[Rfam]
RNA sequence: CUGUGCUAGAUGGGGAGUUAGCGGUGCCUUGUAACCUGCAAUCCGCUUCAGCAGGGUCGAAUUCCUGCCAGAGUAUGAGCAUUUGUAAAGCUGGAAAGAGUAAGUGGUGUUGAGACCUGGGUCUCGCGCAACGGAAGACUGUGAACCCCGUCAGGUCCGGAAGGAAGCAGCGGUAAGCGGACCCUUUUGUGUGCCGCGAGGGUGCCUAGAUUGAGCUAACUGCUUUGAUACCGUUUAUGAUACUCACACGAAGGCAGGUGCACAG
Numbered sequence: 001c002u003g004u005g006c007u008a009g010a011u012g013g014g015g016a017g018u019u020a021g022c023g024g025u026g027c028c029u030u031g032u033a034a035c036c037u038g039c040a041a042u043c044c045g046c047u048u049c050a051g052c053a054g055g056g057u058c059g060a061a062u063u064c065c066u067g068c069c070a071g072a073g074u075a076u077g078a079g080c081a082u083u084u085g086u087a088a089a090g091c092u093g094g095a096a097a098g099a100g101u102a103a104g105u106g107g108u109g110u111u112g113a114g115a116c117c118u119g120g121g122u123c124u125c126g127c128g129c130a131a132c133g134g135a136a137g138a139c140u141g142u143g144a145a146c147c148c149c150g151u152c153a154g155g156u157c158c159g160g161a162a163g164g165a166a167g168c169a170g171c172g173g174u175a176a177g178c179g180g181a182c183c184c185u186u187u188u189g190u191g192u193g194c195c196g197c198g199a200g201g202g203u204g205c206c207u208a209g210a211u212u213g214a215g216c217u218a219a220c221u222g223c224u225u226u227g228a229u230a231c232c233g234u235u236u237a238u239g240a241u242a243c244u245c246a247c248a249c250g251a252a253g254g255c256a257g258g259u260g261c262a263c264a265g
Stems, first nucleotide, its partner, number of pairs: 001265006009058003012030004017025003035055005064258006073249002076246002079243001081241003085238005093232002097226005104220002106217003114212002117209006123200006129191002132189005137182001139180004148173004156165003
Dot-bracket structure: ((((((..(((((((.(((...))).))))....(((((...........)))))))).....((((((...((.((.(.(((.(((((...((..(((((..(((((.....((.((((((((((((((.((((((.((((.....((((....(((....)))....))))...)))).)..)))))))...))))))...)))))).))..))).)).)))))....)).)))))))).).)).))...)))))).))))))
A member of the RNA family "Bacterial large signal recognition particle RNA" from Acetoanaerobium sticklandii, 265 nucleotides long. Taxonomically the source falls in Acetoanaerobium sticklandii (Bacteria, Bacillota, Peptostreptococcales, Acetoanaerobium). The match comes from Rfam's covariance-model search (206 bits).